[Rfam]
RNA sequence: CGGUUUCCUCCUUCAACAGUGUUUGGACGGAACCCG
Numbered sequence: 001c002g003g004u005u006u007c008c009u010c011c012u013u014c015a016a017c018a019g020u021g022u023u024u025g026g027a028c029g030g031a032a033c034c035c036g
Base pairs, nucleotide, nucleotide: 001036002035003034005032006031007030008029012027013026014025015024016023017021
Dot-bracket structure: (((.((((...((((((...).))))).)))).)))
This 36-nucleotide sequence from Callorhinus ursinus belongs to the Rfam family "Iron response element I". The literature on the family includes a 1987 paper in Science by Hentze et al., "Identification of the iron-responsive element for the translational regulation of human ferritin mRNA". Lineage of the source: Eukaryota > Deuterostomia > Euteleostomi > Eutheria > Callorhinus. The match comes from Rfam's covariance-model search (45 bits). Rfam classes the family as a cis-regulatory element. Gene Ontology term of the family: response to iron ion.